[Rfam]
RNA sequence: GUGUUUAGGUAAUCGCUGCACUUUAUUGUGUAGAGGAAAGUCCAUGCUCGCACAAGCUGAGAUGCUUGUAGUGUUCGUGCCUAGCGAAUUCAUAAGCUAGGGUAGUUUGGGUCUUAUCAACCUGGACUAACGGCAGGAUAAACACCUAAGUCUUUUUAAAGAUAUGGUGUGAGGUCCUUGAAAGUGCCACAGUGACGUAGUCUGAUUGGAAACAAUGAGAGUGGAACGAGGUAAACCCCUCGAGCGAGAAACCCAAAAUAUGGUAGGGGCAUCUUCUCUUUCGGAAAUGAACGAAUAGGAAGAACAGGGAAAAUUCCUUGUAGAUAGAUGGUUACCACCGGAGUACGAGGUUCAUCACCGUUUGGAGUACAAAGGUACAGAACAUGGCUUAUCAAA
Numbered sequence: 001g002u003g004u005u006u007a008g009g010u011a012a013u014c015g016c017u018g019c020a021c022u023u024u025a026u027u028g029u030g031u032a033g034a035g036g037a038a039a040g041u042c043c044a045u046g047c048u049c050g051c052a053c054a055a056g057c058u059g060a061g062a063u064g065c066u067u068g069u070a071g072u073g074u075u076c077g078u079g080c081c082u083a084g085c086g087a088a089u090u091c092a093u094a095a096g097c098u099a100g101g102g103u104a105g106u107u108u109g110g111g112u113c114u115u116a117u118c119a120a121c122c123u124g125g126a127c128u129a130a131c132g133g134c135a136g137g138a139u140a141a142a143c144a145c146c147u148a149a150g151u152c153u154u155u156u157u158a159a160a161g162a163u164a165u166g167g168u169g170u171g172a173g174g175u176c177c178u179u180g181a182a183a184g185u186g187c188c189a190c191a192g193u194g195a196c197g198u199a200g201u202c203u204g205a206u207u208g209g210a211a212a213c214a215a216u217g218a219g220a221g222u223g224g225a226a227c228g229a230g231g232u233a234a235a236c237c238c239c240u241c242g243a244g245c246g247a248g249a250a251a252c253c254c255a256a257a258a259u260a261u262g263g264u265a266g267g268g269g270c271a272u273c274u275u276c277u278c279u280u281u282c283g284g285a286a287a288u289g290a291a292c293g294a295a296u297a298g299g300a301a302g303a304a305c306a307g308g309g310a311a312a313a314u315u316c317c318u319u320g321u322a323g324a325u326a327g328a329u330g331g332u333u334a335c336c337a338c339c340g341g342a343g344u345a346c347g348a349g350g351u352u353c354a355u356c357a358c359c360g361u362u363u364g365g366a367g368u369a370c371a372a373a374g375g376u377a378c379a380g381a382a383c384a385u386g387g388c389u390u391a392u393c394a395a396a
Base pairs, nucleotide, nucleotide: 004396005395006394007392008336009335010334011333012332013331014330016033017032018031019030020029021028038390039389040388042387043386044385045384046383047248048247049246050245051244052069053068054067055066056065057064075243076242077241079239080101081100082099083098084097085096102131103129104128105127106126107125108124109123110122111121112120132238133237135178136177137176138175143169144168145167146166150163151162152161153160154159184236185235186232187231188230201220202219203218205216206215207214208213252268253267254266272303273302274301275300276299278298279297304321305320306319307318308317309316338375339374343370344369345368346367
RNA: Bacterial RNase P class B